The family of this 142-nucleotide RNA sequence from Planosporangium flavigriseum is "c-di-AMP riboswitch aptamer (ydaO/yuaA leader)". The organism belongs to Planosporangium, within Bacteria. A search with the family's covariance model found it, with a score of 85 bits.
[Rfam]
RNA sequence: GGCCGGACACCGCCGAAUCGCGCGAGCGAACCGGGAAACCAAAUAUUUCCUUCGGGGUGAAUCCGCGGUCCCCCAGCCGCGGUAGGGCGUGCUUCCCGUCCGAGCCCGACAGCUAACUCGGUAGGCGGUCAGGGAAGAAGGA
Numbered sequence: 001g002g003c004c005g006g007a008c009a010c011c012g013c014c015g016a017a018u019c020g021c022g023c024g025a026g027c028g029a030a031c032c033g034g035g036a037a038a039c040c041a042a043a044u045a046u047u048u049c050c051u052u053c054g055g056g057g058u059g060a061a062u063c064c065g066c067g068g069u070c071c072c073c074c075a076g077c078c079g080c081g082g083u084a085g086g087g088c089g090u091g092c093u094u095c096c097c098g099u100c101c102g103a104g105c106c107c108g109a110c111a112g113c114u115a116a117c118u119c120g121g122u123a124g125g126c127g128g129u130c131a132g133g134g135a136a137g138a139a140g141g142a
Base pairs, nucleotide, nucleotide: 011127012126013125014124018029019028020027030122031121032120033119034118035117040054055107056106057105063082064081065080066079067078068077085101086100087099088098